Group II catalytic intron D1-D4-5: a 185-nucleotide sequence from Terrihalobacillus insolitus. The match comes from Rfam's covariance-model search (87 bits). The source organism's lineage runs through Bacteria, Bacillati, Caryophanales, Bacillaceae and Terrihalobacillus. Rfam describes the family as follows. Group II introns are found in rRNA, tRNA and mRNA of organelles in fungi, plants and protists, and also in mRNA in bacteria.
RNA sequence: UUUAACUUUACAACGGAGGAUUGGAAUGAUGGAACCAUGUUUCCUGAAACAAUCCCAUCAAUACUCCUGCGUGUGUCGUAAUUGACAGAUUACGGGGUUCGAAGCACAGGUAGAUUCGGCAGAAGGAAAGCUAAAGCCAUUCUAAUGGAAAAGGUACGCUAACUGAUAUGCCGCAUGGCUUAAAA
Numbered sequence: 001u002u003u004a005a006c007u008u009u010a011c012a013a014c015g016g017a018g019g020a021u022u023g024g025a026a027u028g029a030u031g032g033a034a035c036c037a038u039g040u041u042u043c044c045u046g047a048a049a050c051a052a053u054c055c056c057a058u059c060a061a062u063a064c065u066c067c068u069g070c071g072u073g074u075g076u077c078g079u080a081a082u083u084g085a086c087a088g089a090u091u092a093c094g095g096g097g098u099u100c101g102a103a104g105c106a107c108a109g110g111u112a113g114a115u116u117c118g119g120c121a122g123a124a125g126g127a128a129a130g131c132u133a134a135a136g137c138c139a140u141u142c143u144a145a146u147g148g149a150a151a152a153g154g155u156a157c158g159c160u161a162a163c164u165g166a167u168a169u170g171c172c173g174c175a176u177g178g179c180u181u182a183a184a185a
Stems, first nucleotide, its partner, number of pairs: 018055006031045002034042001056177003066110004070101002073098002076095008117173005125164002129160002131148003139143001